The family of this 110-nucleotide sequence from Ureibacillus terrenus is "Listeria sRNA rli61". A reference for the family is Toledo-Arana et al. (2009), "The Listeria transcriptional landscape from saprophytism to virulence", Nature.

RNA sequence: CGUGAAAUAAAUCACAUAUCAAACAUACACCCCUUUGUUUGAACGUGAACAUUUCUCCCAUCCCCUUUGUGUAAAGAGGCAUUUGCAAAUGGCAAAUGCCUCUUUUACAU
Dot-bracket structure: .(.(((((....(((.(..((((((..........)))))).).)))...))))).)...............((((((((((((((.....)))))))))))))).....
A search with the family's covariance model found it, with a score of 56 bits.